Annotation:
The family of this 83-nucleotide RNA from Enterococcus thailandicus is "RNA anti-toxin A". On this family, see Fozo et al., Nucleic Acids Res 2010: "Abundance of type I toxin-antitoxin systems in bacteria: searches for new candidates and discovery of novel families".
RNA sequence: AAAUAAGUAUAGAAAAAGGAGUUGCGUCAACAACUCCCUAACAGCACCGUUUAAGACGGUGACCAGAUUAAUUUAACGAAAAA
Numbered sequence: 001a002a003a004u005a006a007g008u009a010u011a012g013a014a015a016a017a018g019g020a021g022u023u024g025c026g027u028c029a030a031c032a033a034c035u036c037c038c039u040a041a042c043a044g045c046a047c048c049g050u051u052u053a054a055g056a057c058g059g060u061g062a063c064c065a066g067a068u069u070a071a072u073u074u075a076a077c078g079a080a081a082a083a
Stems, first nucleotide, its partner, number of pairs: 023032002046060006